[Rfam]
RNA sequence: CUUCAACGACCCCAGCCACAACGGCUCGGCACGCCCCUGCCCAUACGUGGCCAGCAACGCCUGCGCCUC
Numbered sequence: 001c002u003u004c005a006a007c008g009a010c011c012c013c014a015g016c017c018a019c020a021a022c023g024g025c026u027c028g029g030c031a032c033g034c035c036c037c038u039g040c041c042c043a044u045a046c047g048u049g050g051c052c053a054g055c056a057a058c059g060c061c062u063g064c065g066c067c068u069c
Stems, first nucleotide, its partner, number of pairs: 014026004029064002032059002037054003041050003
Dot-bracket structure: .............((((.....))))..((.((...(((.(((....))).)))...))...)).....
RNA: ASpks TB sRNA